Rfam assigns this 357-nucleotide sequence from Companilactobacillus tucceti to the family "Bacterial RNase P class B". The match comes from Rfam's covariance-model search (308 bits).
RNA sequence: AAUUUUGAGUAAUCGCGGCCUAGUUGUCUAGGCUGAGGAAAGUCCACGCCCGCACGGGCUGAGAUGCUGGUAGUGUUCGUGCUUGGCCCAAUAAGCCAAGGUACCUUUUGGUAACGGCAACGAAAGCACUAAGGUUUUUGACUAUGUGUUAAUAGUUUGAAAGUGCCACAGAGACGUAGUGUUGAGGGAAAUCUCAGCAGUGGAACGAGGUAAACCCCACGAGCGGGCAACCCAAACUUUGGUAGGGGCGCUUCAUAACGAGAAAUGAAUCUACUGUGAAGGCUUAAUUGUAGAUAGAUGAUUACUAACUGUAUCGGAUCGCCUAAUCGAUACAUGAACAGAACGUGGCUUAUAGAA
Numbered sequence: 001a002a003u004u005u006u007g008a009g010u011a012a013u014c015g016c017g018g019c020c021u022a023g024u025u026g027u028c029u030a031g032g033c034u035g036a037g038g039a040a041a042g043u044c045c046a047c048g049c050c051c052g053c054a055c056g057g058g059c060u061g062a063g064a065u066g067c068u069g070g071u072a073g074u075g076u077u078c079g080u081g082c083u084u085g086g087c088c089c090a091a092u093a094a095g096c097c098a099a100g101g102u103a104c105c106u107u108u109u110g111g112u113a114a115c116g117g118c119a120a121c122g123a124a125a126g127c128a129c130u131a132a133g134g135u136u137u138u139u140g141a142c143u144a145u146g147u148g149u150u151a152a153u154a155g156u157u158u159g160a161a162a163g164u165g166c167c168a169c170a171g172a173g174a175c176g177u178a179g180u181g182u183u184g185a186g187g188g189a190a191a192u193c194u195c196a197g198c199a200g201u202g203g204a205a206c207g208a209g210g211u212a213a214a215c216c217c218c219a220c221g222a223g224c225g226g227g228c229a230a231c232c233c234a235a236a237c238u239u240u241g242g243u244a245g246g247g248g249c250g251c252u253u254c255a256u257a258a259c260g261a262g263a264a265a266u267g268a269a270u271c272u273a274c275u276g277u278g279a280a281g282g283c284u285u286a287a288u289u290g291u292a293g294a295u296a297g298a299u300g301a302u303u304a305c306u307a308a309c310u311g312u313a314u315c316g317g318a319u320c321g322c323c324u325a326a327u328c329g330a331u332a333c334a335u336g337a338a339c340a341g342a343a344c345g346u347g348g349c350u351u352a353u354a355g356a357a
Stems, first nucleotide, its partner, number of pairs: 004357003007353001008306007016035006040351003044348005049227005054071002057068003077222005082100006101115001102113004116217002119157003126149004133143003163215002165211003180199008231247003251281007282291002310334007
Dot-bracket structure: ...(((((((((((.((((((........))))))....[[[.[[[[[(((((((.(((......))).)).....(((((((((((.......))))))(((((....)))).)((.(((....((((...(((.....)))..)))).....))).....(((((............((((((((....)))))))).........)))..))))))))))))))...(((...........)))...(((((((.................)))))))((......))........)))))))...(((((((...........))))))).........]]]]]]]].).)))